RNA sequence: UUUGGGAAAUGAUGUUAAUAAUACCGAUAGAAUCAUUAGCUCUGUUGAAUUAUUAUUUGCACGUCAAUAUGAUCCUAAA
Numbered sequence: 001u002u003u004g005g006g007a008a009a010u011g012a013u014g015u016u017a018a019u020a021a022u023a024c025c026g027a028u029a030g031a032a033u034c035a036u037u038a039g040c041u042c043u044g045u046u047g048a049a050u051u052a053u054u055a056u057u058u059g060c061a062c063g064u065c066a067a068u069a070u071g072a073u074c075c076u077a078a079a
Stems, first nucleotide, its partner, number of pairs: 001079007
Small nucleolar RNA Z122: a 79-nucleotide RNA sequence from Cicer arietinum. The base pairs follow the family's consensus structure, which was predicted with PFOLD. A search with the family's covariance model found it, with a score of 54 bits. A reference for the family is Chen et al. (2003), "The high diversity of snoRNAs in plants: identification and comparative study of 120 snoRNA genes from Oryza sativa", Nucleic Acids Res. Rfam 15.1 lists 822 matches to the family in 247 species.